[Rfam]
This 165-nucleotide sequence from Mesobacillus boroniphilus belongs to the Rfam family "Group II catalytic intron D1-D4-3". The organism belongs to Mesobacillus boroniphilus, within Bacteria.

RNA sequence: GGUACUGCGAAGUUCCGUGCGGAGGACUCAAAGGCAAACCCCGGAACAGAUGGCAUUACCAUGUUGGCUGGUAGGAUUGGGGAACCUUGCAAAAGAAAGGAAAGCCCAAUUUCCACAACUUAUUCUAUUAGUUAUGAGGACUGGUUUCGGGGGAAAGAGAAUUGA
Dot-bracket structure: ((.(((....))).))...........((((...(...(((((((.(((......((..((.....(((.(((((((.(((...((((........))))....)))..............))))))).)))..))..))))).).))))))....)....))))